[Rfam]
RNA sequence: UAUGGCACUGGUAGAAUUCACUGUGAACAGUCUCGGUCAGUGAAUUACCGAAGGGCCAUAAA
Numbered sequence: 001u002a003u004g005g006c007a008c009u010g011g012u013a014g015a016a017u018u019c020a021c022u023g024u025g026a027a028c029a030g031u032c033u034c035g036g037u038c039a040g041u042g043a044a045u046u047a048c049c050g051a052a053g054g055g056c057c058a059u060a061a062a
Stems, first nucleotide, its partner, number of pairs: 001060006009050003015046009
A member of the RNA family "mir-183 microRNA precursor family" from Tupaia belangeri, 62 nucleotides long. Rfam's curators put it in the seed alignment. Pairs were carried over by alignment from the consensus structure, which was predicted with RNAalifold. Taxonomically the source falls in Tupaia belangeri (Eukaryota, Metazoa, Amniota, Tupaia). Rfam links the family to the GO terms female sex differentiation, cell aging and regulation of gene expression. The family is grouped with related families in Rfam's "mir-182 clan".